[Rfam]
RNA sequence: CGUAAUACACUGCCGAAUUCCUGAUUUUAAGGGAAACGGGGGAACCACUUUGGGUGAAUUGAGUCCCGCCAGCUUUUAGAUUACAGAUGCUGGCCGAGGGAUUCAUAGGGAACCUUCAACCGAACCCCACAGCUAACCUCGUAGGCGCCGGAAGGAGUUUUU
Numbered sequence: 001c002g003u004a005a006u007a008c009a010c011u012g013c014c015g016a017a018u019u020c021c022u023g024a025u026u027u028u029a030a031g032g033g034a035a036a037c038g039g040g041g042g043a044a045c046c047a048c049u050u051u052g053g054g055u056g057a058a059u060u061g062a063g064u065c066c067c068g069c070c071a072g073c074u075u076u077u078a079g080a081u082u083a084c085a086g087a088u089g090c091u092g093g094c095c096g097a098g099g100g101a102u103u104c105a106u107a108g109g110g111a112a113c114c115u116u117c118a119a120c121c122g123a124a125c126c127c128c129a130c131a132g133c134u135a136a137c138c139u140c141g142u143a144g145g146c147g148c149c150g151g152a153a154g155g156a157g158u159u160u161u162u
Stems, first nucleotide, its partner, number of pairs: 011147004018035005036142006052127003060105008108121002

Description:
The record is a 162-nucleotide sequence from Paenibacillus roseus, which matches "c-di-AMP riboswitch aptamer (ydaO/yuaA leader)" in Rfam. It scores 67 bits against the family's covariance model. This family represents a conserved RNA structure found upstream of the ydaO and yuaA genes in Bacillus subtilis and related genes in other bacteria.